The record is a 59-nucleotide RNA from Thermovenabulum gondwanense, which matches "Fluoride riboswitch aptamer (crcB RNA motif)" in Rfam. Pairs were carried over by alignment from the consensus structure, which is taken from published work. The family has 289 seed sequences and 2,293 matches in Rfam 15.1.
RNA sequence: UAAAAGUAUGGUGAUGGAGCUCACCAUAAAAGCAGUAUGCUGAUGGCUCCUGCUAUAUC
Numbered sequence: 001u002a003a004a005a006g007u008a009u010g011g012u013g014a015u016g017g018a019g020c021u022c023a024c025c026a027u028a029a030a031a032g033c034a035g036u037a038u039g040c041u042g043a044u045g046g047c048u049c050c051u052g053c054u055a056u057a058u059c
Stems, first nucleotide, its partner, number of pairs: 010025004016050006032040002
Dot-bracket structure: .........[[[[..((((((]]]]......((.....))....)))))).........
A search with the family's covariance model found it, with a score of 45 bits.